[Rfam]
RNA sequence: CGUAUGAUGCGCUUGCCAGCCCCCGUGUGGCCUGCUUUUCGCGGCGGCGGCGUGCGGUUUUUCCGCACCUGAAUCACUUCCCGGUUAAG
Numbered sequence: 001c002g003u004a005u006g007a008u009g010c011g012c013u014u015g016c017c018a019g020c021c022c023c024c025g026u027g028u029g030g031c032c033u034g035c036u037u038u039u040c041g042c043g044g045c046g047g048c049g050g051c052g053u054g055c056g057g058u059u060u061u062u063c064c065g066c067a068c069c070u071g072a073a074u075c076a077c078u079u080c081c082c083g084g085u086u087a088a089g
Stems, first nucleotide, its partner, number of pairs: 015051003019048003023044005052068006